[Rfam]
RNA sequence: CGGUUGAGAGGGCUGCCAAUGCGGUCCGCUGGGUGAAUACCCACUCGGCUG
Dot-bracket structure: ((((((((.(((((((....)))))))..(((((....)))))))))))))
Numbered sequence: 001c002g003g004u005u006g007a008g009a010g011g012g013c014u015g016c017c018a019a020u021g022c023g024g025u026c027c028g029c030u031g032g033g034u035g036a037a038u039a040c041c042c043a044c045u046c047g048g049c050u051g
Stems, first nucleotide, its partner, number of pairs: 001051008010027007030043005
Shown here is a 51-nucleotide RNA, a member of the family "DUF3800-VI RNA". By type it is a cis-regulatory element. Rfam's curators put it in the seed alignment.